c-di-AMP riboswitch aptamer (ydaO/yuaA leader): a 149-nucleotide RNA sequence from Actinoplanes sp. ATCC 53533. Taxonomically the source falls in Actinoplanes (Bacteria, Bacillati, Actinomycetes, Micromonosporaceae).
RNA sequence: GGCGGGCCGCCGCCCAAUCGCCCAUAGGCGAACCGGGGAACCAUUCAUGUGGGGUGAGUCGGCUCCGCGCGGUCACGCGCGGUGCCGUAGGGAGCGCUUCCAUCCCGAACCCGUCAGCUAACCCGGUCGGCGGUCACACGGAAGGAACA
Numbered sequence: 001g002g003c004g005g006g007c008c009g010c011c012g013c014c015c016a017a018u019c020g021c022c023c024a025u026a027g028g029c030g031a032a033c034c035g036g037g038g039a040a041c042c043a044u045u046c047a048u049g050u051g052g053g054g055u056g057a058g059u060c061g062g063c064u065c066c067g068c069g070c071g072g073u074c075a076c077g078c079g080c081g082g083u084g085c086c087g088u089a090g091g092g093a094g095c096g097c098u099u100c101c102a103u104c105c106c107g108a109a110c111c112c113g114u115c116a117g118c119u120a121a122c123c124c125g126g127u128c129g130g131c132g133g134u135c136a137c138a139c140g141g142a143a144g145g146a147a148c149a
Base pairs, nucleotide, nucleotide: 011132012131013130014129018031019030020029032127033126034125035124036123037122042051043050052112053111054110060087061086062085063084090106091105092104093103